[Rfam]
RNA sequence: GAGUGUAUCUCUUUGGCGAGUCUAACCUGAUUAUCAGGGAAGGCGCAGGGAAACCGAUAGGGGCGCAGCAUUGCCAGGCCCACCGUGUUCAAGCGCGGGGAGUCGAAGGGAUACGACCCGGAACCGAGUGAUCUACUCUGGAGCAGGGUGAAGCGUGGCGAAAGCCACGUGGAGGCCCGUUAGGGUUGGUGUCCUACAAUACCCUCCCGUGACUCGAGAGUAGGGGUGAAAGGCCCAUCGAACUCGGCAACAGCUGGUU
Numbered sequence: 001g002a003g004u005g006u007a008u009c010u011c012u013u014u015g016g017c018g019a020g021u022c023u024a025a026c027c028u029g030a031u032u033a034u035c036a037g038g039g040a041a042g043g044c045g046c047a048g049g050g051a052a053a054c055c056g057a058u059a060g061g062g063g064c065g066c067a068g069c070a071u072u073g074c075c076a077g078g079c080c081c082a083c084c085g086u087g088u089u090c091a092a093g094c095g096c097g098g099g100g101a102g103u104c105g106a107a108g109g110g111a112u113a114c115g116a117c118c119c120g121g122a123a124c125c126g127a128g129u130g131a132u133c134u135a136c137u138c139u140g141g142a143g144c145a146g147g148g149u150g151a152a153g154c155g156u157g158g159c160g161a162a163a164g165c166c167a168c169g170u171g172g173a174g175g176c177c178c179g180u181u182a183g184g185g186u187u188g189g190u191g192u193c194c195u196a197c198a199a200u201a202c203c204c205u206c207c208c209g210u211g212a213c214u215c216g217a218g219a220g221u222a223g224g225g226g227u228g229a230a231a232g233g234c235c236c237a238u239c240g241a242a243c244u245c246g247g248c249a250a251c252a253g254c255u256g257g258u259u
Stems, first nucleotide, its partner, number of pairs: 005114013020044004026038004048055002061081004068074002084097004117257002120254001124247006133223007141215003144211001146178004153170007183208003188204002191202002225235003
RNA: Archaeal large subunit ribosomal RNA, nucleotides 643 to 901
Organism: Halolamina pelagica